[Rfam]
RNA: bantam microRNA precursor family
RNA sequence: CUCAGAGGACAAAAUUGGUUUUCACAGUGAUCUGCAGAUCUUUUCUAUACUCUGAGAUCAUCGUGAAAGCUGAUUUUGUUAA
Numbered sequence: 001c002u003c004a005g006a007g008g009a010c011a012a013a014a015u016u017g018g019u020u021u022u023c024a025c026a027g028u029g030a031u032c033u034g035c036a037g038a039u040c041u042u043u044u045c046u047a048u049a050c051u052c053u054g055a056g057a058u059c060a061u062c063g064u065g066a067a068a069g070c071u072g073a074u075u076u077u078g079u080u081a082a
Stems, first nucleotide, its partner, number of pairs: 009079006016072010028060006